[Rfam]
RNA sequence: UAGAACUAAUGAUUUGACAAGUCAAAUGAUAGAGUAACGUCUUGAAGGGCUUGCCCUAAUAUUCCGAAUAGCGUUUAUAGAUUAAGAUAUAAAUGUUAUAAGCUCGGUGAAGGCGGCUGAGAGUACAUCCUAAAUUUAUGUAUAUAAAUAGGAAAAGUGAACCAGAGGUGGUCAAGUGUAUGAUAGGUCGGGGGUCUAUAAA
Numbered sequence: 001u002a003g004a005a006c007u008a009a010u011g012a013u014u015u016g017a018c019a020a021g022u023c024a025a026a027u028g029a030u031a032g033a034g035u036a037a038c039g040u041c042u043u044g045a046a047g048g049g050c051u052u053g054c055c056c057u058a059a060u061a062u063u064c065c066g067a068a069u070a071g072c073g074u075u076u077a078u079a080g081a082u083u084a085a086g087a088u089a090u091a092a093a094u095g096u097u098a099u100a101a102g103c104u105c106g107g108u109g110a111a112g113g114c115g116g117c118u119g120a121g122a123g124u125a126c127a128u129c130c131u132a133a134a135u136u137u138a139u140g141u142a143u144a145u146a147a148a149u150a151g152g153a154a155a156a157g158u159g160a161a162c163c164a165g166a167g168g169u170g171g172u173c174a175a176g177u178g179u180a181u182g183a184u185a186g187g188u189c190g191g192g193g194g195u196c197u198a199u200a201a202a
Base pairs, nucleotide, nucleotide: 018053019052020051021050022049023048031043032042034040054194055193056192057191064107065106066105067104068099069098070097071096072095073094074093075092076091077090078089079088114190115189116188117187118186123181124180125179126178127177128176129152130151131150136148137147158174159173161172162171163170164169
Rfam assigns this 202-nucleotide RNA from Candidatus Epulonipiscium fishelsonii to the family "Group II catalytic intron D1-D4-5". Group II introns are found in rRNA, tRNA and mRNA of organelles in fungi, plants and protists, and also in mRNA in bacteria. The source organism's lineage runs through Bacteria, Bacillota, Clostridia, Lachnospirales and Candidatus Epulonipiscium. The match comes from Rfam's covariance-model search (155 bits). The pairing is the family consensus, mapped onto this sequence. Gene Ontology term of the family: Group II intron splicing.